The record is a 93-nucleotide sequence from Salsuginibacillus halophilus, which matches "Selenocysteine transfer RNA" in Rfam.
NCBI's taxonomy places the organism under Bacteria, Bacillota, Caryophanales, Bacillaceae, Salsuginibacillus.
The match comes from Rfam's covariance-model search (64 bits).
The family is grouped with related families in Rfam's "tRNA clan".
The family's consensus secondary structure is taken from published work.
[Rfam]
RNA sequence: GGGGCCGGAUGCGGAACUGGUGUCCGCCUGGGCCUUCAAAGCCCUGAGGAAGGCGCGUGCCGUCUUCGGUAGGUUCGAUUCCUACACGGUCCC
Numbered sequence: 001g002g003g004g005c006c007g008g009a010u011g012c013g014g015a016a017c018u019g020g021u022g023u024c025c026g027c028c029u030g031g032g033c034c035u036u037c038a039a040a041g042c043c044c045u046g047a048g049g050a051a052g053g054c055g056c057g058u059g060c061c062g063u064c065u066u067c068g069g070u071a072g073g074u075u076c077g078a079u080u081c082c083u084a085c086a087c088g089g090u091c092c093c
Stems, first nucleotide, its partner, number of pairs: 001093007008085001011027005017022001028046001030044004049067005070084004